Overview: Shown here is a 145-nucleotide sequence from Priestia filamentosa, a member of the family "ylbH leader". Lineage of the source: Bacteria > Bacillati > Bacillota > Bacilli > Priestia. The family's RNA type in Rfam is cis-regulatory leader.

RNA sequence: AUAAAAAAACCCUGCAAUCACUUGAUUGCAGGGUCCUUCUAUAGCAAGAUUAACAUUCCCGUAUGUUUGUUAAUCAAGAUAAGAAGGCAAAGGGAGAGGAGAAACCGGAGGAAGAACUUAUGGGGAACGUAAGUCUUCUCCGCGG
Numbered sequence: 001a002u003a004a005a006a007a008a009a010c011c012c013u014g015c016a017a018u019c020a021c022u023u024g025a026u027u028g029c030a031g032g033g034u035c036c037u038u039c040u041a042u043a044g045c046a047a048g049a050u051u052a053a054c055a056u057u058c059c060c061g062u063a064u065g066u067u068u069g070u071u072a073a074u075c076a077a078g079a080u081a082a083g084a085a086g087g088c089a090a091a092g093g094g095a096g097a098g099g100a101g102a103a104a105c106c107g108g109a110g111g112a113a114g115a116a117c118u119u120a121u122g123g124g125g126a127a128c129g130u131a132a133g134u135c136u137u138c139u140c141c142g143c144g145g
Stems, first nucleotide, its partner, number of pairs: 010033009034094005106142004111138004116134005

Rfam links the family to the GO term regulation of gene expression. Rfam's curators write: This family is a putative regulatory RNA structure that is found upstream of the ylbH gene in B. subtilis and related low GC Gram-positive bacteria.